[Rfam]
RNA sequence: AAAUCAUCUGAUGAGAAGAAAACUGCAACAAUAUGAAACUUUAAAGUCCAUGAUUCGUUUGUAUUUAAGUCUCUGAUGAUU
Numbered sequence: 001a002a003a004u005c006a007u008c009u010g011a012u013g014a015g016a017a018g019a020a021a022a023c024u025g026c027a028a029c030a031a032u033a034u035g036a037a038a039c040u041u042u043a044a045a046g047u048c049c050a051u052g053a054u055u056c057g058u059u060u061g062u063a064u065u066u067a068a069g070u071c072u073c074u075g076a077u078g079a080u081u
Stems, first nucleotide, its partner, number of pairs: 001081002004079003038047003
Description
A member of the RNA family "Small nucleolar RNA Z199" from Coffea arabica, 81 nucleotides long. Rfam's curators write: snoZ199 is a C/D box small nucleolar RNA, which acts as a methylation guide RNA for sites on 18S and 25S rRNA. Rice snoZ199 is reported to be homologous to Arabidopsis snoR13. The family has 17 seed sequences and 953 matches in Rfam 15.1. It is annotated as a C/D-box small nucleolar RNA. A reference for the family is Chen et al. (2003), "The high diversity of snoRNAs in plants: identification and comparative study of 120 snoRNA genes from Oryza sativa", Nucleic Acids Res. Taxonomically the source falls in Coffea (Eukaryota, Tracheophyta, eudicotyledons, Pentapetalae).